[Rfam]
RNA: Editing element of GABA-3 exon 9
Organism: Pangasianodon hypophthalmus
RNA sequence: AAAGUGCCCUAUGCCACAGCCAUGGACUGGUUCAUUGCCGUCUGCUUCGCCUUU
Numbered sequence: 001a002a003a004g005u006g007c008c009c010u011a012u013g014c015c016a017c018a019g020c021c022a023u024g025g026a027c028u029g030g031u032u033c034a035u036u037g038c039c040g041u042c043u044g045c046u047u048c049g050c051c052u053u054u
Stems, first nucleotide, its partner, number of pairs: 001054003006051001008049001011046001013045002016041002019038002022035005